[Rfam]
Shown here is a 45-nucleotide RNA sequence from Callithrix jacchus, a member of the family "Histone 3' UTR stem-loop".
Rfam describes the family as follows. The mRNAs of metazoan histone genes lack a poly-A tail. 3' end processing occurs at a site between a highly conserved stem-loop (modelled by this family) and a purine rich region around 20 nts downstream (the histone downstream element, or HDE). The stem-loop is bound by a 31 kDa stem-loop binding protein (SLBP - also termed the histone hairpin binding protein, or HBP). Together with U7 snRNA binding of the HDE, SLBP binding nucleate s the formation of the processing complex. The histone 3' UTR stem-loop is also involved in nucleocytoplasmic transport of the mRNA, and in stability regulation and translation efficiency in the cytoplasm.
Taxonomically the source falls in Callithrix (Eukaryota, Mammalia, Haplorrhini, Callithrix).
A search with the family's covariance model found it, with a score of 40 bits.
Nucleotides: 045
Base pairs, nucleotide, nucleotide: 006021007020008019009018010017011016
Number, partner (000 for none) and nucleotide at each position: 001000c002000c003000a004000a005000a006021g007020g008019c009018u010017c011016u012000u013000u014000u015000c016011a017010g018009a019008g020007c021006c022000a023000c024000c025000u026000a027000u028000g029000u030000a031000u032000u033000c034000a035000u036000u037000a038000a039000a040000a041000g042000g043000g044000c045000u